Annotation:
Shown here is a 111-nucleotide RNA from Colobus angolensis, a member of the family "Small nucleolar RNA SNORD124". The family's RNA type in Rfam is C/D-box small nucleolar RNA. The match comes from Rfam's covariance-model search (41 bits).
RNA sequence: UUAUGGUGAGAAAGGAAAGAUCUUCAGAUAGAAACUGGAGAGAAGGAUUCUGAGGAGCUGCUUUGUGACAUAGGCAUUCCACUUACAGAAAUAUACCUUUCUUCUCCUAGA
Numbered sequence: 001u002u003a004u005g006g007u008g009a010g011a012a013a014g015g016a017a018a019g020a021u022c023u024u025c026a027g028a029u030a031g032a033a034a035c036u037g038g039a040g041a042g043a044a045g046g047a048u049u050c051u052g053a054g055g056a057g058c059u060g061c062u063u064u065g066u067g068a069c070a071u072a073g074g075c076a077u078u079c080c081a082c083u084u085a086c087a088g089a090a091a092u093a094u095a096c097c098u099u100u101c102u103u104c105u106c107c108u109a110g111a
Stems, first nucleotide, its partner, number of pairs: 009102007
Pairs were carried over by alignment from the consensus structure, which was predicted with WAR.
Its family is annotated with nucleolus and RNA processing in the Gene Ontology.